[Rfam]
RNA sequence: AAAAGGAGCAAUAACCCCUUUCUUGGUCUAUCAAGAGGGCGUUAUUGUUCCCUCUUUU
Numbered sequence: 001a002a003a004a005g006g007a008g009c010a011a012u013a014a015c016c017c018c019u020u021u022c023u024u025g026g027u028c029u030a031u032c033a034a035g036a037g038g039g040c041g042u043u044a045u046u047g048u049u050c051c052c053u054c055u056u057u058u
Stems, first nucleotide, its partner, number of pairs: 003053001005051011020037006
Plastid-psbA-3 3UTR RNA: a 58-nucleotide RNA sequence. A reference for the family is Richter et al. (2023), "Retrograde signaling in plants: A critical review focusing on the GUN pathway and beyond", Plant Commun. Rfam's curators write: Plastid psbA-3 is a non-coding RNA (ncRNA) present in plastids. It was identified in inverted repeat sequences in the 3 prime untranslate region (3UTR) of photosystem II quinone-binding protein (psbA). By type it is a cis-regulatory element. The base pairs follow the family's consensus structure, which was predicted with LocARNA.